[Rfam]
RNA sequence: UAAUGUUUUGGGCAAAACAUGAGAAAUCAUGUGACGCAAAGCUCUAGAGCCUUUUACAUGGUAGUCAGUUGCAGAA
Numbered sequence: 001u002a003a004u005g006u007u008u009u010g011g012g013c014a015a016a017a018c019a020u021g022a023g024a025a026a027u028c029a030u031g032u033g034a035c036g037c038a039a040a041g042c043u044c045u046a047g048a049g050c051c052u053u054u055u056a057c058a059u060g061g062u063a064g065u066c067a068g069u070u071g072c073a074g075a076a
Stems, first nucleotide, its partner, number of pairs: 012037002017032006040070004047066002049062003

A member of the RNA family "c-di-GMP-I riboswitch aptamer" from Agathobacter ruminis, 76 nucleotides long.
GEMM was predicted in a large-scale screen for bacterial structured RNA regulatory elements. Genes associated with GEMM are involved in a diverse array of functions, including chemotaxis regulation, signal transduction, secretion and chitin.
Pairs were carried over by alignment from the consensus structure, which is taken from published work.
The organism belongs to Agathobacter, within Bacteria.